[Rfam]
Shown here is a 144-nucleotide RNA from Takifugu rubripes, a member of the family "Small nucleolar RNA SNORA79". Rfam's curators write: ACA65 (SNORA79) is a member of the H/ACA class of snoRNAs that guide the sites of modification of uridines to pseudouridines. This snoRNA was identified by computational screening and its expression in mouse experimentally verified by Northern blot and primer extension analysis. A search with the family's covariance model found it, with a score of 58 bits. On this family, see Schattner et al., RNA 2006: "A computational screen for mammalian pseudouridylation guide H/ACA RNAs". Taxonomically the source falls in Takifugu (Eukaryota, Bilateria, Vertebrata, Tetraodontoidei). Rfam classes the family as an H/ACA-box small nucleolar RNA.
RNA sequence: UGACCUCCGUUCCCCUUCCUGUCUGCAGAGCGUCAGGAAGGUUUAGUGAUGUCACAGAGCAACCGGGUCCUUUUCACCCAGGAAGUCUCGGGCAGCUUCUGCCCGUUGACGAGUGGCUUCCUGGUUUUGCGGGACCCUACAGGU
Numbered sequence: 001u002g003a004c005c006u007c008c009g010u011u012c013c014c015c016u017u018c019c020u021g022u023c024u025g026c027a028g029a030g031c032g033u034c035a036g037g038a039a040g041g042u043u044u045a046g047u048g049a050u051g052u053c054a055c056a057g058a059g060c061a062a063c064c065g066g067g068u069c070c071u072u073u074u075c076a077c078c079c080a081g082g083a084a085g086u087c088u089c090g091g092g093c094a095g096c097u098u099c100u101g102c103c104c105g106u107u108g109a110c111g112a113g114u115g116g117c118u119u120c121c122u123g124g125u126u127u128u129g130c131g132g133g134a135c136c137c138u139a140c141a142g143g144u
Stems, first nucleotide, its partner, number of pairs: 001054004006049002014041005020035002023032001066136006078124010